[Rfam]
RNA sequence: GACCUCGUGGCUCAACUGGAUAGAGCAGCCCCCUCCUAAGGGGCAGGUUGCAGGUUCAAGUCCUGCCGGGGUCA
Numbered sequence: 001g002a003c004c005u006c007g008u009g010g011c012u013c014a015a016c017u018g019g020a021u022a023g024a025g026c027a028g029c030c031c032c033c034u035c036c037u038a039a040g041g042g043g044c045a046g047g048u049u050g051c052a053g054g055u056u057c058a059a060g061u062c063c064u065g066c067c068g069g070g071g072u073c074a
Stems, first nucleotide, its partner, number of pairs: 001073007010026004028044005050066005
RNA: tRNA